[Rfam]
RNA sequence: GACGGGGCAUAAAAGGCGUCUUAGUGAACGACCCGGGGGCGACCCCGCAGUAGCAACCGAGACGAGCCGAUGUUCCGUCGUGCGUUUUGAAAAACGA
Numbered sequence: 001g002a003c004g005g006g007g008c009a010u011a012a013a014a015g016g017c018g019u020c021u022u023a024g025u026g027a028a029c030g031a032c033c034c035g036g037g038g039g040c041g042a043c044c045c046c047g048c049a050g051u052a053g054c055a056a057c058c059g060a061g062a063c064g065a066g067c068c069g070a071u072g073u074u075c076c077g078u079c080g081u082g083c084g085u086u087u088u089g090a091a092a093a094a095c096g097a
Stems, first nucleotide, its partner, number of pairs: 001079010015068002019062004024057002029053001034047005083096003
This 97-nucleotide part of an RNA from Halococcus morrhuae belongs to the Rfam family "Archaeal large subunit ribosomal RNA". The sequence is in the family's curated seed alignment. Its family is annotated with ribosome and structural constituent of ribosome in the Gene Ontology. Its Rfam clan is "LSU clan". The source organism's lineage runs through Archaea, Methanobacteriati, Halobacteriales, Halococcaceae and Halococcus. The literature on the family includes a 2001 paper in Science by Yusupov et al., "Crystal structure of the ribosome at 5.5 A resolution".